[Rfam]
RNA sequence: CUCUUAUCCAGAGCGGCGGAGGGACUGGCCCGAUGAAGCCCGGCAACCUCGGUGGCAAUUCACCGGAAGGUGCUAAUUCCUGCAGAAAGCCUUGUGUUUCUGAGAGAUAAGGG
Numbered sequence: 001c002u003c004u005u006a007u008c009c010a011g012a013g014c015g016g017c018g019g020a021g022g023g024a025c026u027g028g029c030c031c032g033a034u035g036a037a038g039c040c041c042g043g044c045a046a047c048c049u050c051g052g053u054g055g056c057a058a059u060u061c062a063c064c065g066g067a068a069g070g071u072g073c074u075a076a077u078u079c080c081u082g083c084a085g086a087a088a089g090c091c092u093u094g095u096g097u098u099u100c101u102g103a104g105a106g107a108u109a110a111g112g113g
Stems, first nucleotide, its partner, number of pairs: 001113008013041001015040003021031003025082001027080002042074004047070002049066004078105001083102006
Shown here is a 113-nucleotide sequence from Thermoactinomyces mirandus, a member of the family "SAM riboswitch aptamer (S box leader)".
Pairs were carried over by alignment from the consensus structure, which is taken from published work.